Overview
Rfam assigns this 108-nucleotide RNA from Aegilops tauschii to the family "Small nucleolar RNA Z188". The organism belongs to Aegilops tauschii, within Eukaryota.
RNA sequence: GCAUGCCGAUGAUGAUGCAAAAGCAUCGGUGAAUUCUGGAUGAAUGCGCUUACCACGACGAGGUGUGCGGCUCUGAAGAUAUCCACUGCGCAAUACUCUGAGGCACGC
Numbered sequence: 001g002c003a004u005g006c007c008g009a010u011g012a013u014g015a016u017g018c019a020a021a022a023g024c025a026u027c028g029g030u031g032a033a034u035u036c037u038g039g040a041u042g043a044a045u046g047c048g049c050u051u052a053c054c055a056c057g058a059c060g061a062g063g064u065g066u067g068c069g070g071c072u073c074u075g076a077a078g079a080u081a082u083c084c085a086c087u088g089c090g091c092a093a094u095a096c097u098c099u100g101a102g103g104c105a106c107g108c
Base pairs, nucleotide, nucleotide: 002107004105005104006103007102
Annotation:
The literature on the family includes a 2003 paper in Nucleic Acids Res by Chen et al., "The high diversity of snoRNAs in plants: identification and comparative study of 120 snoRNA genes from Oryza sativa". The base pairs follow the family's consensus structure, which was predicted with PFOLD.